[Rfam]
RNA: Small nucleolar RNA SNORD103/SNORD85
RNA sequence: GUUGGCUGUGAUGACAAACUUGCCCUCUCUGAGAGAACUGCUCUAUUAUGACAAUCAGAUAAACGCUCCUGAGCCGAA
Numbered sequence: 001g002u003u004g005g006c007u008g009u010g011a012u013g014a015c016a017a018a019c020u021u022g023c024c025c026u027c028u029c030u031g032a033g034a035g036a037a038c039u040g041c042u043c044u045a046u047u048a049u050g051a052c053a054a055u056c057a058g059a060u061a062a063a064c065g066c067u068c069c070u071g072a073g074c075c076g077a078a
Stems, first nucleotide, its partner, number of pairs: 002077005